[Rfam]
RNA sequence: UCCGGAAUGGUGUAAUGGUCAACAUUUGUCGCUCUCAAGCAGAGCGCCGACAGGCUCGGGGUUCAAUUCCCCGUUCCGGAA
Dot-bracket structure: (((((((..((((........)))).(((((................)))))....(((((.......)))))))))))).
RNA: tRNA
Organism: Plectosphaerella plurivora